This 106-nucleotide RNA from Prunus persica belongs to the Rfam family "MIR6274 microRNA precursor family". A search with the family's covariance model found it, with a score of 89 bits. The organism belongs to Prunus, within Eukaryota. The family has 2 seed sequences and 342 matches in Rfam 15.1. Rfam links the family to the GO terms miRNA-mediated post-transcriptional gene silencing and RISC complex. The base pairs follow the family's consensus structure, which was predicted with RNAalifold.
RNA sequence: GGAUAACACUGUUUUGCUAUCUCAGUCAAUAACACAAUGACAUGUAGAAAAGUUAUUUUACGUGUCAUUACGUUAUUGACCUGAAAUAGCAAAAAGUGAUAUUUCC
Numbered sequence: 001g002g003a004u005a006a007c008a009c010u011g012u013u014u015u016g017c018u019a020u021c022u023c024a025g026u027c028a029a030u031a032a033c034a035c036a037a038u039g040a041c042a043u044g045u046a047g048a049a050a051a052g053u054u055a056u057u058u059u060a061c062g063u064g065u066c067a068u069u070a071c072g073u074u075a076u077u078g079a080c081c082u083g084a085a086a087u088a089g090c091a092a093a094a095a096g097u098g099a100u101a102u103u104u105c106c
Stems, first nucleotide, its partner, number of pairs: 002105002005102001012094009022084004026079008036069014